[Rfam]
RNA: Small nucleolar RNA Z43
RNA sequence: AGACGAUGAUGAUUUAUAGUUAAAGGUCUCGUUCGUCGUAAUUGGCCUUUUUUGGCCUUGCCGACCAUUCUGCUAUAUCACCACCCAUAUUCCGAGUCU
Numbered sequence: 001a002g003a004c005g006a007u008g009a010u011g012a013u014u015u016a017u018a019g020u021u022a023a024a025g026g027u028c029u030c031g032u033u034c035g036u037c038g039u040a041a042u043u044g045g046c047c048u049u050u051u052u053u054g055g056c057c058u059u060g061c062c063g064a065c066c067a068u069u070c071u072g073c074u075a076u077a078u079c080a081c082c083a084c085c086c087a088u089a090u091u092c093c094g095a096g097u098c099u
Stems, first nucleotide, its partner, number of pairs: 001099004044059002046054001